[Rfam]
RNA sequence: CAUAGAUUAUAUGACUGACGGAAGUAGAAUUAAUUACAUGAAGUAUAACGAAUAUAAGCCGACCGUCUGGGCAAGAGCC
Numbered sequence: 001c002a003u004a005g006a007u008u009a010u011a012u013g014a015c016u017g018a019c020g021g022a023a024g025u026a027g028a029a030u031u032a033a034u035u036a037c038a039u040g041a042a043g044u045a046u047a048a049c050g051a052a053u054a055u056a057a058g059c060c061g062a063c064c065g066u067c068u069g070g071g072c073a074a075g076a077g078c079c
Stems, first nucleotide, its partner, number of pairs: 003052001007048006015040001017067005024037004058072003
Overview:
A member of the RNA family "ZMP/ZTP riboswitch aptamer (pfl RNA motif)" from Anaerocolumna sedimenticola, 79 nucleotides long. The base pairs follow the family's consensus structure, which is taken from published work. NCBI's taxonomy places the organism under Bacteria, Bacillati, Bacillota, Lachnospiraceae, Anaerocolumna. Rfam links the family to the GO terms regulation of purine nucleotide biosynthetic process and one-carbon metabolic process.